[Rfam]
Rfam assigns this 71-nucleotide RNA from Regulus satrapa to the family "mir-34 microRNA precursor family". Clan: mir-34 clan. Human mir-34a was discovered computationally and later experimentally verified. The mature sequence is excised from the 5' arm of the hairpin. The family has 113 seed sequences and 2,256 matches in Rfam 15.1. A reference for the family is Houbaviy et al. (2003), "Embryonic stem cell-specific MicroRNAs", Dev Cell. Lineage of the source: Eukaryota > Tetrapoda > Amniota > Sauropsida > Regulus.
RNA sequence: GGUUUGCAGGCAGUGUAGUUAGCUGAUUGUCUCCCUCCUUCCACAAUCACUACCUUCACUGCCAGCAAAAC
Numbered sequence: 001g002g003u004u005u006g007c008a009g010g011c012a013g014u015g016u017a018g019u020u021a022g023c024u025g026a027u028u029g030u031c032u033c034c035c036u037c038c039u040u041c042c043a044c045a046a047u048c049a050c051u052a053c054c055u056u057c058a059c060u061g062c063c064a065g066c067a068a069a070a071c
Stems, first nucleotide, its partner, number of pairs: 003069004009063002012060004017055002020052003024049007